Background:
A member of the RNA family "MIR2593 microRNA precursor family" from Medicago truncatula, 115 nucleotides long. A search with the family's covariance model found it, with a score of 98 bits. Its family is annotated with miRNA-mediated post-transcriptional gene silencing and RISC complex in the Gene Ontology. Lineage of the source: Eukaryota > Streptophytina > Fabaceae > Papilionoideae > Medicago.
RNA sequence: AUGUAACCAACUUUUCACUUUUUAGAUUCAUUCAAUAAAUGAUGUAUGUGGUCUAUAAUAUGAACCACAUACAUAAUUUAUUAAAUGAAUCUAAAAAGUGAAAAAUUGGUUACAU
Numbered sequence: 001a002u003g004u005a006a007c008c009a010a011c012u013u014u015u016c017a018c019u020u021u022u023u024a025g026a027u028u029c030a031u032u033c034a035a036u037a038a039a040u041g042a043u044g045u046a047u048g049u050g051g052u053c054u055a056u057a058a059u060a061u062g063a064a065c066c067a068c069a070u071a072c073a074u075a076a077u078u079u080a081u082u083a084a085a086u087g088a089a090u091c092u093a094a095a096a097a098g099u100g101a102a103a104a105a106u107u108g109g110u111u112a113c114a115u
Stems, first nucleotide, its partner, number of pairs: 002114006009107002012104002015101011027089006034082007042074003049067004